[Rfam]
RNA sequence: AAACAUAAAUAUAAAUUUCCUCGUAUAAUUUGAGAAUACGGCUCAAAAGUUUCUACCCGUUACCGUAAAUGACGGACUAUGAGGGAAGAUGAAAAUAUC
Numbered sequence: 001a002a003a004c005a006u007a008a009a010u011a012u013a014a015a016u017u018u019c020c021u022c023g024u025a026u027a028a029u030u031u032g033a034g035a036a037u038a039c040g041g042c043u044c045a046a047a048a049g050u051u052u053c054u055a056c057c058c059g060u061u062a063c064c065g066u067a068a069a070u071g072a073c074g075g076a077c078u079a080u081g082a083g084g085g086a087a088g089a090u091g092a093a094a095a096u097a098u099c
Base pairs, nucleotide, nucleotide: 018085019084020083021082022081023080024079025078029047030046031045032044033043034042057075058074059073060072061071062070
RNA: Purine riboswitch aptamer
Organism: Streptohalobacillus salinus